[Rfam]
RNA sequence: AUUGCCGUGAGGAAUUGUGCGGAGGACCUGAAGGCAAAACCUGGAACAGGCGACAAUCUAACCGUGUUGGCUGGCAGAGUCGGAUAACCCUGCAAAGGAAGGGAGUGUCCAAAGCCACAAGAGGGCUCUGUUAGUUAGGAGGACUGGAUUCAGGGGAAAGCCCGAUGA
Numbered sequence: 001a002u003u004g005c006c007g008u009g010a011g012g013a014a015u016u017g018u019g020c021g022g023a024g025g026a027c028c029u030g031a032a033g034g035c036a037a038a039a040c041c042u043g044g045a046a047c048a049g050g051c052g053a054c055a056a057u058c059u060a061a062c063c064g065u066g067u068u069g070g071c072u073g074g075c076a077g078a079g080u081c082g083g084a085u086a087a088c089c090c091u092g093c094a095a096a097g098g099a100a101g102g103g104a105g106u107g108u109c110c111a112a113a114g115c116c117a118c119a120a121g122a123g124g125g126c127u128c129u130g131u132u133a134g135u136u137a138g139g140a141g142g143a144c145u146g147g148a149u150u151c152a153g154g155g156g157a158a159a160g161c162c163c164g165a166u167g168a
Base pairs, nucleotide, nucleotide: 001016003014005012006011029168031166034161035160040154041153042152043151044150047146048145049144062142063141065139070135071134072133074131075130076129077128078127079126080125082110083109084108085107088103089102090101091100

The family of this 168-nucleotide RNA sequence from Bacillus benzoevorans is "Group II catalytic intron D1-D4-3". The pairing is the family consensus, mapped onto this sequence. Rfam links the family to the GO term Group II intron splicing. The source organism's lineage runs through Bacteria, Bacilli, Caryophanales, Bacillaceae and Bacillus.